RNA sequence: GGUCUGAGAUGAAUAGUAAAAGGUCUGAUUGUCCCAAGACUUGCUCUUCUAUGGCCUCUUCUCCCAGCAGUUUCUCCCCAGUCAUGGCACAGCAGUGGUGUGGCUGGAGGAGUGUUUGCUGACAGCAUGUGAUGUGUUCAGUUCAUGUUAACCUGAAGUGCUGGGGACAUGACUGCCAGCAGCAUCCAACAGACCUGCUGAAAGGAGUUGGGGUUUUGGCUUGUUAUAUCUGGACGUAUGAUCUGACUUUUCUGCUGAGACC
Numbered sequence: 001g002g003u004c005u006g007a008g009a010u011g012a013a014u015a016g017u018a019a020a021a022g023g024u025c026u027g028a029u030u031g032u033c034c035c036a037a038g039a040c041u042u043g044c045u046c047u048u049c050u051a052u053g054g055c056c057u058c059u060u061c062u063c064c065c066a067g068c069a070g071u072u073u074c075u076c077c078c079c080a081g082u083c084a085u086g087g088c089a090c091a092g093c094a095g096u097g098g099u100g101u102g103g104c105u106g107g108a109g110g111a112g113u114g115u116u117u118g119c120u121g122a123c124a125g126c127a128u129g130u131g132a133u134g135u136g137u138u139c140a141g142u143u144c145a146u147g148u149u150a151a152c153c154u155g156a157a158g159u160g161c162u163g164g165g166g167a168c169a170u171g172a173c174u175g176c177c178a179g180c181a182g183c184a185u186c187c188a189a190c191a192g193a194c195c196u197g198c199u200g201a202a203a204g205g206a207g208u209u210g211g212g213g214u215u216u217u218g219g220c221u222u223g224u225u226a227u228a229u230c231u232g233g234a235c236g237u238a239u240g241a242u243c244u245g246a247c248u249u250u251u252c253u254g255c256u257g258a259g260a261c262c
Stems, first nucleotide, its partner, number of pairs: 001262004037244003041240001048219002051216001061207004065121006078107009129187001131186005144171005152166003
Shown here is a 262-nucleotide RNA from Odontophorus gujanensis, a member of the family "Small Cajal body specific RNA 6". By type it is a small Cajal body RNA. U88 is small Cajal body specific RNA (scaRNA). scaRNAs are a novel class of small nuclear RNAs which localise to the Cajal bodies. A reference for the family is Darzacq et al. (2002), "Cajal body-specific small nuclear RNAs: a novel class of 2'-O-methylation and pseudouridylation guide RNAs", EMBO J. The base pairs follow the family's consensus structure, which is taken from published work. Taxonomically the source falls in Odontophorus (Eukaryota, Deuterostomia, Coelurosauria, Aves).